The family of this 68-nucleotide sequence from Solanum tuberosum is "MIR1886 microRNA precursor family".
The organism belongs to Solanum, within Eukaryota.
Rfam links the family to the GO terms RISC complex and miRNA-mediated post-transcriptional gene silencing.
Rfam 15.1 lists 1,053 matches to the family in 6 species.
RNA sequence: AUGGUAUCGUGAGAUGAAAUCAGCGUUUGGACAUGCGAUUUUACGCUGAUUUCAUCUCAUGAUUCCAU
Numbered sequence: 001a002u003g004g005u006a007u008c009g010u011g012a013g014a015u016g017a018a019a020u021c022a023g024c025g026u027u028u029g030g031a032c033a034u035g036c037g038a039u040u041u042u043a044c045g046c047u048g049a050u051u052u053c054a055u056c057u058c059a060u061g062a063u064u065c066c067a068u
Stems, first nucleotide, its partner, number of pairs: 010059017027038003